[Rfam]
RNA sequence: GUGAAGUUAAUCACAAACAAACUUAUACCCCUUUGUUUGACCGUGAAAAAUUUCUCCCAUCCCCUUUGUUCGUAAUAAAAAUAAAAAAAGGCCUUGCGCUGUGACGUCAAGCCCUUUUU
Numbered sequence: 001g002u003g004a005a006g007u008u009a010a011u012c013a014c015a016a017a018c019a020a021a022c023u024u025a026u027a028c029c030c031c032u033u034u035g036u037u038u039g040a041c042c043g044u045g046a047a048a049a050a051u052u053u054c055u056c057c058c059a060u061c062c063c064c065u066u067u068g069u070u071c072g073u074a075a076u077a078a079a080a081a082u083a084a085a086a087a088a089a090g091g092c093c094u095u096g097c098g099c100u101g102u103g104a105c106g107u108c109a110a111g112c113c114c115u116u117u118u119u
Base pairs, nucleotide, nucleotide: 003054004053005052006051007050008049011046012045013044014043018039019038020037021036022035025034070084088116089115090114091113093111094110095109096108097106098105
Shown here is a 119-nucleotide RNA from Niallia nealsonii, a member of the family "RNA Staph. aureus E (RoxS)". Taxonomically the source falls in Niallia (Bacteria, Bacilli, Caryophanales, Bacillaceae). Rfam describes the family as follows. It was shown to be regulated by the presence of nitric oxide (NO). In Bacillus subtilis it controls expression of genes with functions related to oxidative stress and oxidation-reduction reactions and it was renamed RoxS (for related to oxidative stress). It scores 95 bits against the family's covariance model. Gene Ontology term of the family: regulation of translational initiation. By type it is a small RNA. The base pairs follow the family's consensus structure, which is taken from published work.